Plant signal recognition particle RNA: a 299-nucleotide RNA sequence.
Pairs were carried over by alignment from the consensus structure, which is taken from published work.

RNA sequence: GAGUUGAUUUACACCAACUUGUAACCCAUGUGGGAGCAACAAGGUGAUGGAACAUGAUUGUGUCUUAACAGGUUGGGCUGUAGGGUACAUUAUGCUGGCCUGCCCACUCCAAGUUGAGAGUUGGGCCAUGGGAUUUGGGCGAAGGCUCAGAUCUCCUGGUCACUAGAACGGAGGGAUCCGCAUGAGGCUGGUUUCACAGAGCAGUGAACACUUCCUUCUCUUGACAGUGGAGGGAUCACAGGCUGCAGUAUUCUCAGCCCAUAUGGCCUGGUGAGCCUAGCCAUUGAACCAUCAUUUUU
Dot-bracket structure: ((((((.(....).))))))....(((....)))......((((((((((..((....(..(..(.....(((((((..(..(.(((..(.....(((((((.((.(((((.((((((((...(((((.(((((((((((....))))))))).)))))))........(((((......(((....(((......)))....)))....)))))..))))))))..)))))))....))))))).).)))).)...)))....))))....)...)..)....))..)))))))))).
Numbered sequence: 001g002a003g004u005u006g007a008u009u010u011a012c013a014c015c016a017a018c019u020u021g022u023a024a025c026c027c028a029u030g031u032g033g034g035a036g037c038a039a040c041a042a043g044g045u046g047a048u049g050g051a052a053c054a055u056g057a058u059u060g061u062g063u064c065u066u067a068a069c070a071g072g073u074u075g076g077g078c079u080g081u082a083g084g085g086u087a088c089a090u091u092a093u094g095c096u097g098g099c100c101u102g103c104c105c106a107c108u109c110c111a112a113g114u115u116g117a118g119a120g121u122u123g124g125g126c127c128a129u130g131g132g133a134u135u136u137g138g139g140c141g142a143a144g145g146c147u148c149a150g151a152u153c154u155c156c157u158g159g160u161c162a163c164u165a166g167a168a169c170g171g172a173g174g175g176a177u178c179c180g181c182a183u184g185a186g187g188c189u190g191g192u193u194u195c196a197c198a199g200a201g202c203a204g205u206g207a208a209c210a211c212u213u214c215c216u217u218c219u220c221u222u223g224a225c226a227g228u229g230g231a232g233g234g235a236u237c238a239c240a241g242g243c244u245g246c247a248g249u250a251u252u253c254u255c256a257g258c259c260c261a262u263a264u265g266g267c268c269u270g271g272u273g274a275g276c277c278u279a280g281c282c283a284u285u286g287a288a289c290c291a292u293c294a295u296u297u298u299u
Stems, first nucleotide, its partner, number of pairs: 001020006008013001025034003041298010053286002059280001062277001065273001071268004075260003080254001083252001085251003090247001096245007104234002107232005113225008124161005130156002132153009170215005181206003188199003